[Rfam]
RNA sequence: AAUAACCAACCUCUCACUCGGAUCGUUUGGCACGUACCUGUCAAUGAAAGGAUAAAAUU
Numbered sequence: 001a002a003u004a005a006c007c008a009a010c011c012u013c014u015c016a017c018u019c020g021g022a023u024c025g026u027u028u029g030g031c032a033c034g035u036a037c038c039u040g041u042c043a044a045u046g047a048a049a050g051g052a053u054a055a056a057a058u059u
Base pairs, nucleotide, nucleotide: 010051011050012049014047015046016045027044028043029042030041031040032039
RNA: msiK RNA
Organism: Alloscardovia omnicolens